Shown here is a 499-nucleotide part of an RNA from Hyphomonas chukchiensis, a member of the family "Bacterial small subunit ribosomal RNA". Clan: SSU clan. The family's consensus secondary structure is taken from published work.
RNA sequence: CAACUUGAGAGUUUGAUUCUGGCUCAGAACGAACGCUGGCGGCAGGCUUAACACAUGCAAGUCGAACGAUAUAGUGGCAGACGGGUGAGUAACGCGUGGGAACGUACCUUUCACUACGGAAUAGCUCUUGGAAACGAGUGGUAAUACCGUAUACGCCCUCCGGGGGAAAGAUUUAUCGGUGAAAGAUCGGCCCGCGUUAGAUUAGCUAGUUGGUAGGGUAAUGGCCUACCAAGGCGACGAUCUAUAGCUGGUCUGAGAGGAUGAUCAGCCACACUGGGACUGAGACACGGCCCAGACUCCUACGGGAGGCAGCAGUGGGGAAUCUUGCACAAUGGGCGAAAGCCUGAUGCAGCCAUGCCGCGUGAAUGAUGAAGGCCUUAGGGUUGUAAAAUUCUUUCGCUAGGGAUGAUAAUGACAGUACCUAGUAAAGAAGCCCCGGCUAACUUCGUGCCAGCAGCCGCGGUAAUACGAAGGGGGCUAGCGUUGUUCGGAAUUACUG
Numbered sequence: 001c002a003a004c005u006u007g008a009g010a011g012u013u014u015g016a017u018u019c020u021g022g023c024u025c026a027g028a029a030c031g032a033a034c035g036c037u038g039g040c041g042g043c044a045g046g047c048u049u050a051a052c053a054c055a056u057g058c059a060a061g062u063c064g065a066a067c068g069a070u071a072u073a074g075u076g077g078c079a080g081a082c083g084g085g086u087g088a089g090u091a092a093c094g095c096g097u098g099g100g101a102a103c104g105u106a107c108c109u110u111u112c113a114c115u116a117c118g119g120a121a122u123a124g125c126u127c128u129u130g131g132a133a134a135c136g137a138g139u140g141g142u143a144a145u146a147c148c149g150u151a152u153a154c155g156c157c158c159u160c161c162g163g164g165g166g167a168a169a170g171a172u173u174u175a176u177c178g179g180u181g182a183a184a185g186a187u188c189g190g191c192c193c194g195c196g197u198u199a200g201a202u203u204a205g206c207u208a209g210u211u212g213g214u215a216g217g218g219u220a221a222u223g224g225c226c227u228a229c230c231a232a233g234g235c236g237a238c239g240a241u242c243u244a245u246a247g248c249u250g251g252u253c254u255g256a257g258a259g260g261a262u263g264a265u266c267a268g269c270c271a272c273a274c275u276g277g278g279a280c281u282g283a284g285a286c287a288c289g290g291c292c293c294a295g296a297c298u299c300c301u302a303c304g305g306g307a308g309g310c311a312g313c314a315g316u317g318g319g320g321a322a323u324c325u326u327g328c329a330c331a332a333u334g335g336g337c338g339a340a341a342g343c344c345u346g347a348u349g350c351a352g353c354c355a356u357g358c359c360g361c362g363u364g365a366a367u368g369a370u371g372a373a374g375g376c377c378u379u380a381g382g383g384u385u386g387u388a389a390a391a392u393u394c395u396u397u398c399g400c401u402a403g404g405g406a407u408g409a410u411a412a413u414g415a416c417a418g419u420a421c422c423u424a425g426u427a428a429a430g431a432a433g434c435c436c437c438g439g440c441u442a443a444c445u446u447c448g449u450g451c452c453a454g455c456a457g458c459c460g461c462g463g464u465a466a467u468a469c470g471a472a473g474g475g476g477g478c479u480a481g482c483g484u485u486g487u488u489c490g491g492a493a494u495u496a497c498u499g
Base pairs, nucleotide, nucleotide: 009025010024011023012022013021027489028488029487030486032485033484034483035482036481037480039361040360041359042358043357044356045354046353047319052317053316054315056314057313058312061078062077063076066075067074085272086271087270094197095196096195097194098193099192100191103189104188108185109184110183111182112181113180114179116150117149118148119147125140127138128137129136130135156165157164158163170177171176198244199243200242205235206234207233210232211231212230213229214228215227216226217225247269248268249267250266251262252261253260254259274295275294276293277292278291297308298307299306300305325351327350328349329348333346334345335344336343337342364394365393366392367391374385375384376383377382398430399426400425401424402423403422404421408416433478434477435476436475437474444473445472446471447470448469454461455460